[Rfam]
RNA sequence: CUUGCGGUUGAUUGUCCAAACGCAAUUCUUGUGAAAUUGUAAACAACCCGAGAAUUGUAUCUGGACAUCUGUUGCUGG
Numbered sequence: 001c002u003u004g005c006g007g008u009u010g011a012u013u014g015u016c017c018a019a020a021c022g023c024a025a026u027u028c029u030u031g032u033g034a035a036a037u038u039g040u041a042a043a044c045a046a047c048c049c050g051a052g053a054a055u056u057g058u059a060u061c062u063g064g065a066c067a068u069c070u071g072u073u074g075c076u077g078g
Base pairs, nucleotide, nucleotide: 002077004075005074006073007072010069011068012067014066015065016064017063018062022058023057024056025055026054027053028052029051030050031049
Dot-bracket structure: .(.((((..(((.(((((...((((((((((.................))))))))))...))))))))..)))).).